[Rfam]
RNA sequence: CCCGCCACUAUACCCGCCUGUCGUGGCUCGGUGUAAUCCAGUGGUGCGCUGAGACCAACUCUCCUCUUAGGAAACAGGGCUCGUCUGUGUGUGAUCAUCCCUGUGCCGAAAGAUGGAGCACAGAC
Dot-bracket structure: ....(((((........(.((....).).).........)))))................((((((((.((...(((((...(((.......)))...)))))..))..)))).)))).......
Numbered sequence: 001c002c003c004g005c006c007a008c009u010a011u012a013c014c015c016g017c018c019u020g021u022c023g024u025g026g027c028u029c030g031g032u033g034u035a036a037u038c039c040a041g042u043g044g045u046g047c048g049c050u051g052a053g054a055c056c057a058a059c060u061c062u063c064c065u066c067u068u069a070g071g072a073a074a075c076a077g078g079g080c081u082c083g084u085c086u087g088u089g090u091g092u093g094a095u096c097a098u099c100c101c102u103g104u105g106c107c108g109a110a111a112g113a114u115g116g117a118g119c120a121c122a123g124a125c
Stems, first nucleotide, its partner, number of pairs: 005044005018030001020028001021026001061118004065113004070107002075103005083095003
Shown here is a 125-nucleotide sequence from Xenopus tropicalis, a member of the family "Small nucleolar RNA SNORA65". Rfam 15.1 lists 1,089 matches to the family in 619 species. A reference for the family is Huttenhofer et al. (2001), "RNomics: an experimental approach that identifies 201 candidates for novel, small, non-messenger RNAs in mouse", EMBO J. Lineage of the source: Eukaryota > Metazoa > Anura > Xenopodinae > Silurana. From the family's description: U65 belongs to the H/ACA class of snoRNAs which are thought to guide the sites of modification of uridines to pseudouridines. Its Rfam clan is "SNORA65 clan".